The record is a 60-nucleotide RNA from Otolemur garnettii, which matches "U7 small nuclear RNA" in Rfam. About the family: Animal histone pre-mRNAs are spliced by a different mechanism than nuclear pre-mRNAs and self-splicing introns. This processing involves the U7 snRNP, which contains only one RNA species: U7. The 5' end of U7 RNA is thought to base-pair to a conserved spacer element downstream of the cleavage site in histone pre-mRNA. This family contains a number of annotated U7 pseudogenes. The family's consensus secondary structure was predicted with PFOLD. NCBI's taxonomy places the organism under Eukaryota, Opisthokonta, Eutheria, Galagidae, Otolemur.

RNA sequence: GAGUGUUACAGCUUUUAGAAUAGGUCUAGCAGGUUUUCCCGUCUCUGCUGGAAGACUCCU
Numbered sequence: 001g002a003g004u005g006u007u008a009c010a011g012c013u014u015u016u017a018g019a020a021u022a023g024g025u026c027u028a029g030c031a032g033g034u035u036u037u038c039c040c041g042u043c044u045c046u047g048c049u050g051g052a053a054g055a056c057u058c059c060u
Base pairs, nucleotide, nucleotide: 032057033056034055035054036053037052038051039050041048042047
Dot-bracket structure: ...............................((((((((.((....)).))))))))...